[Rfam]
RNA sequence: GUCAGCACCCCGCUCUAAAUUAAUGGGGCUUCGUGCCUCUCCUUUAGUAGGGGCGUUUCGCGAAACGCCCCUAAGCCCUUUGAGGGCUACGUUAUCGGUAAGGGUUAAAGCUCCUAGCUUGGGAUACGUCGCCAGUCCCCUGCUCUAGAACCAAACCGUUAAACCGUCUUACGAGGGGUAAGACAGUGCGGUUUGGAAAGUACCGACCGAUAACAUUGGCGAGGCGCUAUGAC
Numbered sequence: 001g002u003c004a005g006c007a008c009c010c011c012g013c014u015c016u017a018a019a020u021u022a023a024u025g026g027g028g029c030u031u032c033g034u035g036c037c038u039c040u041c042c043u044u045u046a047g048u049a050g051g052g053g054c055g056u057u058u059c060g061c062g063a064a065a066c067g068c069c070c071c072u073a074a075g076c077c078c079u080u081u082g083a084g085g086g087c088u089a090c091g092u093u094a095u096c097g098g099u100a101a102g103g104g105u106u107a108a109a110g111c112u113c114c115u116a117g118c119u120u121g122g123g124a125u126a127c128g129u130c131g132c133c134a135g136u137c138c139c140c141u142g143c144u145c146u147a148g149a150a151c152c153a154a155a156c157c158g159u160u161a162a163a164c165c166g167u168c169u170u171a172c173g174a175g176g177g178g179u180a181a182g183a184c185a186g187u188g189c190g191g192u193u194u195g196g197a198a199a200g201u202a203c204c205g206a207c208c209g210a211u212a213a214c215a216u217u218g219g220c221g222a223g224g225c226g227c228u229a230u231g232a233c
Stems, first nucleotide, its partner, number of pairs: 001066002005061002007058001009028002011025002070219002073216001074088005091214006103208004112149002118142001121139005128228001130226004151196009163187002166184007
The family of this 233-nucleotide RNA sequence from Oxynema aestuarii is "HNH endonuclease-associated RNA and ORF (HEARO) RNA".
On this family, see Weinberg et al., Nature 2009: "Exceptional structured noncoding RNAs revealed by bacterial metagenome analysis".
Rfam classes the family as a non-coding RNA gene.
It scores 104 bits against the family's covariance model.